The record is a 182-nucleotide RNA from Cohnella abietis, which matches "c-di-AMP riboswitch aptamer (ydaO/yuaA leader)" in Rfam.
[Rfam]
RNA sequence: UUUAAUGAAUAGCCGAAUUUCAUGUUAUUGAAAACGGGGGAACCAAACAAUCACGUGUACAAGUUCAAUUGUAUUCGGAGAUCCCGGGGUGAAUUCCAAUUGUGUUUACUUAACAUUGGAUAGGGCAGCCUGUUCGAGCCCGAACCCGACAGCUAACCUCGUAGGCUAUACGAAUGGGAAUC
Numbered sequence: 001u002u003u004a005a006u007g008a009a010u011a012g013c014c015g016a017a018u019u020u021c022a023u024g025u026u027a028u029u030g031a032a033a034a035c036g037g038g039g040g041a042a043c044c045a046a047a048c049a050a051u052c053a054c055g056u057g058u059a060c061a062a063g064u065u066c067a068a069u070u071g072u073a074u075u076c077g078g079a080g081a082u083c084c085c086g087g088g089g090u091g092a093a094u095u096c097c098a099a100u101u102g103u104g105u106u107u108a109c110u111u112a113a114c115a116u117u118g119g120a121u122a123g124g125g126c127a128g129c130c131u132g133u134u135c136g137a138g139c140c141c142g143a144a145c146c147c148g149a150c151a152g153c154u155a156a157c158c159u160c161g162u163a164g165g166c167u168a169u170a171c172g173a174a175u176g177g178g179a180a181u182c
Base pairs, nucleotide, nucleotide: 011167012166013165014164018033019032020031021030022029034162035161036160037159038158039157044086087147088146089145095120096119097118098117099116100115123141124140125139126138
Lineage of the source: Bacteria > Bacillati > Bacillota > Paenibacillaceae > Cohnella.